[Rfam]
Annotation:
Shown here is a 95-nucleotide RNA from Rubrivivax gelatinosus, a member of the family "c-di-GMP-I riboswitch aptamer". A search with the family's covariance model found it, with a score of 53 bits.

RNA sequence: GCCGCAUCAGGGCACACCCGUGCGAAAGCCGGGGUCGCAAAGCUUCCGGUCUAACCGUCCCCCCGAGCGGGACGCACGACAGCGGGGCCGCCGGG
Numbered sequence: 001g002c003c004g005c006a007u008c009a010g011g012g013c014a015c016a017c018c019c020g021u022g023c024g025a026a027a028g029c030c031g032g033g034g035u036c037g038c039a040a041a042g043c044u045u046c047c048g049g050u051c052u053a054a055c056c057g058u059c060c061c062c063c064c065g066a067g068c069g070g071g072a073c074g075c076a077c078g079a080c081a082g083c084g085g086g087g088c089c090g091c092c093g094g095g
Base pairs, nucleotide, nucleotide: 012038013037017033018032019031020030022029023028042088043087044086046085047084048083049080050079051078056074057073058072059071060070061069